This 352-nucleotide part of an RNA from Sulfuricella denitrificans belongs to the Rfam family "Bacterial large subunit ribosomal RNA". The organism belongs to Sulfuricella denitrificans, within Bacteria. Rfam links the family to the GO terms ribosome and structural constituent of ribosome. It scores 2832 bits against the family's covariance model.
RNA sequence: UGAGAGAACUCGGGUGAAGGAACUCGGCAAAUUAGCACCGUAACUUCGGGAGAAGGUGCGCCCCUGGUAUGUGUAGUCCCUCGCGGAUGAAGCAGAUAGGGGUUGCAGUGAAUUGGUGGCUGCGACUGUUUAAUAAAAACACAGCACUCUGCAAACACGAAAGUGGACGUAUAGGGUGUGACUCCUGCCCGGUGCCGGAAGGUUAAUUGAUGGGGUGCAAGCUCUUGAUCGAAGCCCCGGUAAACGGCGGCCGUAACUAUAACGGUCCUAAGGUAGCGAAAUUCCUUGUCGGGUAAGUUCCGACCCGCACGAAUGGAGUAACGAUGGCCACACUGUCUCCACCCGAGACUCA
Dot-bracket structure: ((((....((((((((.(((..............(((((....(....).....)))))((((((........(.((((.....)))).).......))))))(...).......(((((((((..(((.........)))..(((((((((...(((....)))...)..))))))))..((((.(((..(((((((..(((........(((((....)))))........))))))))..)))))((((((.......))))))(...).....(.........((((((.....))))))).........))))...)).)))))))....))).)))))))).))))